Shown here is a 199-nucleotide RNA sequence from Heyndrickxia coagulans, a member of the family "Group II catalytic intron D1-D4-5". Rfam 15.1 lists 720 matches to the family in 418 species. It is one of the family's seed sequences. The pairing is the family consensus, mapped onto this sequence.
[Rfam]
RNA sequence: GAGAACUGAUGAUUCGAAGAGUCGAAUGAAGGAGUAACGCCCGGAAAGGCUCUCCCUGAUCCUCCGAAUAGCGUCAAGAUAGGUAAGGAUCUUGAGGUUAUAAGCUCGGUGAAGUCGGCUGAAUGCUGCCGUAACAAGUCAAGUUGACGAAAGCUUUCCAGAGGUGGAAGGUGCAGCAAAUAAGCCGGGGGUCUAUAAA
Dot-bracket structure: .................((((((........(.(.....).).....))))))((((......(((((((((.(((((((........))))))).)))))....))))......(((((...(((((((((....((.....)).)))...((((((((....))))))))))))))....)))))))))........

Its family is annotated with Group II intron splicing in the Gene Ontology. The literature on the family includes a 2001 paper in Trends Genet by Bonen and Vogel, "The ins and outs of group II introns". Group II introns are found in rRNA, tRNA and mRNA of organelles in fungi, plants and protists, and also in mRNA in bacteria.